[Rfam]
RNA: UnaL2 LINE 3' element
RNA sequence: UGCACUCACUACUGUAAGUCCCUCUGGAUAAGAGCGUCUGCUAAAUUAUAUAAA
Dot-bracket structure: ............((((...(.((((.....)))).)..))).)...........